[Rfam]
RNA sequence: UUGGGCGAACUCAAUGUGAGACACACGCUUUGGAAAUAGAUCCCACAUAAAGUGGUGGGACCAACAUUGAUUUCACUCAA
Numbered sequence: 001u002u003g004g005g006c007g008a009a010c011u012c013a014a015u016g017u018g019a020g021a022c023a024c025a026c027g028c029u030u031u032g033g034a035a036a037u038a039g040a041u042c043c044c045a046c047a048u049a050a051a052g053u054g055g056u057g058g059g060a061c062c063a064a065c066a067u068u069g070a071u072u073u074c075a076c077u078c079a080a
Base pairs, nucleotide, nucleotide: 001080002079003078004077005076007074008073009072011070012069013068014067015066016065017064024057025056026054027053028052029051030050031049032048

The record is an 80-nucleotide RNA sequence from Trifolium medium, which matches "MIR5269 microRNA precursor family" in Rfam. The source organism's lineage runs through Eukaryota, Streptophytina, Tracheophyta, Magnoliopsida and Trifolium. The match comes from Rfam's covariance-model search (62 bits). Rfam links the family to the GO terms RISC complex and miRNA-mediated post-transcriptional gene silencing.